[Rfam]
RNA sequence: AGUUAAAAAGGGCAAACUUGUCGAAAGGCAAGGACGCAAAGCCGGGGUCUAAAGUUUAAAUAAACCAUGACAGCCGGUUGCUGAU
Numbered sequence: 001a002g003u004u005a006a007a008a009a010g011g012g013c014a015a016a017c018u019u020g021u022c023g024a025a026a027g028g029c030a031a032g033g034a035c036g037c038a039a040a041g042c043c044g045g046g047g048u049c050u051a052a053a054g055u056u057u058a059a060a061u062a063a064a065c066c067a068u069g070a071c072a073g074c075c076g077g078u079u080g081c082u083g084a085u
Base pairs, nucleotide, nucleotide: 012037013036017032018031019030020029021028022027040079041078042077043076045075046074047071048070049069054065055064056063057062
Rfam assigns this 85-nucleotide sequence from Desulfotomaculum nigrificans to the family "c-di-GMP-I riboswitch aptamer". The organism belongs to Desulfotomaculum nigrificans, within Bacteria. Gene Ontology term of the family: cyclic-di-GMP binding.